[Rfam]
RNA sequence: CUGGCAGGCUGCCUUAUCGCUCAAAAAUUUUGGGAGGAAAGUCCGGACACCAUAGCGUAGCAUAGCGGGUAACACCCGUCACCAUAUAGUUUUAUAUGGUAGGACCAGUGCAACAGAAAGUAUGUACAGAUAAUGCUGUAGUGAAAUCAGGUAAACUCUAUGCGGUGCAACGCCAUGUAAACCCGUGCUUAAGGGUUACGCGCUCGAUGCGGGAGGGUAGGCGGUUAGAAGUAAUUGGCAACGAUUACUCCAGAUAAAUGAUAAGGACACAAUAUUGUGGUACAGAAUCCGGCUUACAGGCCUGCUUUCUUU
Numbered sequence: 001c002u003g004g005c006a007g008g009c010u011g012c013c014u015u016a017u018c019g020c021u022c023a024a025a026a027a028u029u030u031u032g033g034g035a036g037g038a039a040a041g042u043c044c045g046g047a048c049a050c051c052a053u054a055g056c057g058u059a060g061c062a063u064a065g066c067g068g069g070u071a072a073c074a075c076c077c078g079u080c081a082c083c084a085u086a087u088a089g090u091u092u093u094a095u096a097u098g099g100u101a102g103g104a105c106c107a108g109u110g111c112a113a114c115a116g117a118a119a120g121u122a123u124g125u126a127c128a129g130a131u132a133a134u135g136c137u138g139u140a141g142u143g144a145a146a147u148c149a150g151g152u153a154a155a156c157u158c159u160a161u162g163c164g165g166u167g168c169a170a171c172g173c174c175a176u177g178u179a180a181a182c183c184c185g186u187g188c189u190u191a192a193g194g195g196u197u198a199c200g201c202g203c204u205c206g207a208u209g210c211g212g213g214a215g216g217g218u219a220g221g222c223g224g225u226u227a228g229a230a231g232u233a234a235u236u237g238g239c240a241a242c243g244a245u246u247a248c249u250c251c252a253g254a255u256a257a258a259u260g261a262u263a264a265g266g267a268c269a270c271a272a273u274a275u276u277g278u279g280g281u282a283c284a285g286a287a288u289c290c291g292g293c294u295u296a297c298a299g300g301c302c303u304g305c306u307u308u309c310u311u312u
Stems, first nucleotide, its partner, number of pairs: 003306008011297001012266007020034006039295003043292005048167004055201004060163005065079005080102001081100008103158002108156002110152002126139004171223004182213005193205004230249008
The family of this 312-nucleotide RNA sequence from Abyssalbus ytuae is "Bacterial RNase P class A". It is annotated as a ribozyme. The match comes from Rfam's covariance-model search (187 bits).